[Rfam]
RNA sequence: CCCACGAUUGUGUCUUAUGGCUUUCUAUUCCUAUGUGAGUUAUUUUUAGCAGGUCAUGUAGGGUUUAAAGCCAUUGGAUACGCGGUGGG
Numbered sequence: 001c002c003c004a005c006g007a008u009u010g011u012g013u014c015u016u017a018u019g020g021c022u023u024u025c026u027a028u029u030c031c032u033a034u035g036u037g038a039g040u041u042a043u044u045u046u047u048a049g050c051a052g053g054u055c056a057u058g059u060a061g062g063g064u065u066u067a068a069a070g071c072c073a074u075u076g077g078a079u080a081c082g083c084g085g086u087g088g089g
Base pairs, nucleotide, nucleotide: 002088003087004086005085009082010081011080012079013078014077015076017074018073019072020071021070022069023068024067027065029063030062031061032060033059034058035057036056037055038054

The record is an 89-nucleotide sequence from Takifugu flavidus, which matches "mir-135 microRNA precursor family" in Rfam. Pairs were carried over by alignment from the consensus structure, which was predicted with PFOLD. For this family Rfam cites "Identification of many microRNAs that copurify with polyribosomes in mammalian neurons" (Kim et al., Proc Natl Acad Sci U S A, 2004). Gene Ontology terms of the family: gene silencing by miRNA and RISC complex. Lineage of the source: Eukaryota > Chordata > Gnathostomata > Neoteleostei > Takifugu.